Background:
Shown here is a 97-nucleotide RNA from Microbacterium oryzae, a member of the family "Bacterial small signal recognition particle RNA".
[Rfam]
RNA sequence: UCCAGCUCUCCGCGUGGCGGCAUCCAGGCCAACUCCCCCAGGACGGAAACGUAGCAAGGGUAACCGGGCUCUGUCGGGUGCGCGGAGAGCCUUUUCA
Number, nucleotide and partner (000 for none) at each position: 001u000002c000003c000004a000005g090006c089007u088008c087009u086010c085011c084012g083013c082014g081015u078016g000017g000018c076019g075020g074021c073022a072023u000024c068025c067026a000027g065028g064029c000030c000031a000032a000033c000034u000035c060036c059037c058038c000039c000040a000041g000042g000043a052044c051045g050046g000047a000048a000049a000050c045051g044052u043053a000054g000055c000056a000057a000058g037059g036060g035061u000062a000063a000064c028065c027066g000067g025068g024069c000070u000071c000072u022073g021074u020075c019076g018077g000078g015079u000080g000081c014082g013083c012084g011085g010086a009087g008088a007089g006090c005091c000092u000093u000094u000095u000096c000097a000

Annotation:
The signal recognition particle (SRP) is a universally conserved ribonucleoprotein involved in the co-translational targeting of proteins to membranes. Rfam classes the family as a non-coding RNA gene. Lineage of the source: Bacteria > Actinomycetota > Actinomycetes > Microbacteriaceae > Microbacterium.